[Rfam]
RNA sequence: AUAAGAAAGACAAAAGAGCGACCGUUAGGUCGCUCUAUAUUGGCAUUUUUAUUACAUCAUUUGGUUUGGCCGCCGAUCAGUAAUAAAAAUAACCCUCAGGUUACGCAUAGCUGGCUACUAAUCAGGUUCCUUACGCUAUUAAUGAUUAGUGGUUUUUGUAACUCUAACCCAGGUACUUACUUGGGUUUUUUUAU
Numbered sequence: 001a002u003a004a005g006a007a008a009g010a011c012a013a014a015a016g017a018g019c020g021a022c023c024g025u026u027a028g029g030u031c032g033c034u035c036u037a038u039a040u041u042g043g044c045a046u047u048u049u050u051a052u053u054a055c056a057u058c059a060u061u062u063g064g065u066u067u068g069g070c071c072g073c074c075g076a077u078c079a080g081u082a083a084u085a086a087a088a089a090u091a092a093c094c095c096u097c098a099g100g101u102u103a104c105g106c107a108u109a110g111c112u113g114g115c116u117a118c119u120a121a122u123c124a125g126g127u128u129c130c131u132u133a134c135g136c137u138a139u140u141a142a143u144g145a146u147u148a149g150u151g152g153u154u155u156u157u158g159u160a161a162c163u164c165u166a167a168c169c170c171a172g173g174u175a176c177u178u179a180c181u182u183g184g185g186u187u188u189u190u191u192u193a194u
Stems, first nucleotide, its partner, number of pairs: 016035008041092001043090001047088009061076005100162006113154009166187009
Rfam assigns this 194-nucleotide sequence from Vibrio sp. MED222 to the family "MicX Vibrio cholerae sRNA". The base pairs follow the family's consensus structure, which was predicted with CMfinder. Rfam's curators put it in the seed alignment. By type it is a small RNA.